[Rfam]
RNA: drz-agam-1 ribozyme
RNA sequence: AGCUGAACUAAACCCUAUCUCCACCUCCACGUGGUAAUCGCUGGGAGCUCUUUCUCAACGAAACGCUGCAGGCGGAGAAGG
Numbered sequence: 001a002g003c004u005g006a007a008c009u010a011a012a013c014c015c016u017a018u019c020u021c022c023a024c025c026u027c028c029a030c031g032u033g034g035u036a037a038u039c040g041c042u043g044g045g046a047g048c049u050c051u052u053u054c055u056c057a058a059c060g061a062a063a064c065g066c067u068g069c070a071g072g073c074g075g076a077g078a079a080g081g
Stems, first nucleotide, its partner, number of pairs: 014081003018077001020075002023035003046067003051063004